[Rfam]
RNA sequence: CAGCGUUAUAGAUCUUUUAGAAUUUGCUUAGCAGGUUUUCUGGUUUUCACUGGAAAAUAA
Numbered sequence: 001c002a003g004c005g006u007u008a009u010a011g012a013u014c015u016u017u018u019a020g021a022a023u024u025u026g027c028u029u030a031g032c033a034g035g036u037u038u039u040c041u042g043g044u045u046u047u048c049a050c051u052g053g054a055a056a057a058u059a060a
Base pairs, nucleotide, nucleotide: 036060037056038055039054040053041052042051043050044049
Notes: Rfam assigns this 60-nucleotide RNA from Sapajus apella to the family "U7 small nuclear RNA". Rfam 15.1 lists 10,439 matches to the family in 569 species. The base pairs follow the family's consensus structure, which was predicted with PFOLD. Rfam describes the family as follows. Animal histone pre-mRNAs are spliced by a different mechanism than nuclear pre-mRNAs and self-splicing introns. For this family Rfam cites "3' end processing of mouse histone pre-mRNA: evidence for additional base-pairing between U7 snRNA and pre-mRNA" (Spycher et al., Nucleic Acids Res, 1994).